Rfam assigns this 82-nucleotide RNA sequence from Rosa chinensis to the family "Small nucleolar RNA J33".
The pairing is the family consensus, mapped onto this sequence.
A reference for the family is Chen et al. (2003), "The high diversity of snoRNAs in plants: identification and comparative study of 120 snoRNA genes from Oryza sativa", Nucleic Acids Res.
The source organism's lineage runs through Eukaryota, Streptophyta, Gunneridae, fabids and Rosa.
Rfam links the family to the GO terms nucleolus and RNA processing.

RNA sequence: CAGUUAGAGGAAUGAUGUAUUACCGACGAGCUCUGAAGCUUCAGGCUUUUCUUGAUAUGGCUAAUGAAGAAGGUAAUAGCAG
Numbered sequence: 001c002a003g004u005u006a007g008a009g010g011a012a013u014g015a016u017g018u019a020u021u022a023c024c025g026a027c028g029a030g031c032u033c034u035g036a037a038g039c040u041u042c043a044g045g046c047u048u049u050u051c052u053u054g055a056u057a058u059g060g061c062u063a064a065u066g067a068a069g070a071a072g073g074u075a076a077u078a079g080c081a082g
Stems, first nucleotide, its partner, number of pairs: 001082001003080004